The record is a 111-nucleotide sequence from Cerasibacillus terrae, which matches "SAM riboswitch aptamer (S box leader)" in Rfam. The SAM riboswitch is found upstream of a number of genes which code for proteins involved in methionine or cysteine biosynthesis in Gram-positive bacteria. The SAM riboswitch acts at the level of transcription termination control. The predicted structure consists of a complex stem-loop region followed by a single stem loop terminator region. The base pairs follow the family's consensus structure, which is taken from published work.

RNA sequence: CUCUUAUCAAGAGAGGUGGAGGGAUGGGCCCUGUGAAACCUCGGCAACCUUCAGAUGAAUUCUGAAACGGUGCUACGUCCUGCGCUCGACCUUUCGAGGGAUAGAUGAGGG
Numbered sequence: 001c002u003c004u005u006a007u008c009a010a011g012a013g014a015g016g017u018g019g020a021g022g023g024a025u026g027g028g029c030c031c032u033g034u035g036a037a038a039c040c041u042c043g044g045c046a047a048c049c050u051u052c053a054g055a056u057g058a059a060u061u062c063u064g065a066a067a068c069g070g071u072g073c074u075a076c077g078u079c080c081u082g083c084g085c086u087c088g089a090c091c092u093u094u095c096g097a098g099g100g101a102u103a104g105a106u107g108a109g110g111g
Stems, first nucleotide, its partner, number of pairs: 001111008013042005021031003025082004043074004048070002050066004078103001083100001085098004